The family of this 46-nucleotide RNA from Rousettus aegyptiacus is "Histone 3' UTR stem-loop".
The match comes from Rfam's covariance-model search (40 bits).
By type it is a cis-regulatory element.
The literature on the family includes a 1999 paper in Gene by Dominski and Marzluff, "Formation of the 3' end of histone mRNA".
The base pairs follow the family's consensus structure, which is taken from published work.
RNA sequence: CCAAAGGCUCUUUUAAGAGCCACUCACAAUUUCCGAGAAAGAGCUU
Numbered sequence: 001c002c003a004a005a006g007g008c009u010c011u012u013u014u015a016a017g018a019g020c021c022a023c024u025c026a027c028a029a030u031u032u033c034c035g036a037g038a039a040a041g042a043g044c045u046u
Base pairs, nucleotide, nucleotide: 006021007020008019009018010017011016
About this RNA
Rfam describes the family as follows. The mRNAs of metazoan histone genes lack a poly-A tail. 3' end processing occurs at a site between a highly conserved stem-loop (modelled by this family) and a purine rich region around 20 nts downstream (the histone downstream element, or HDE).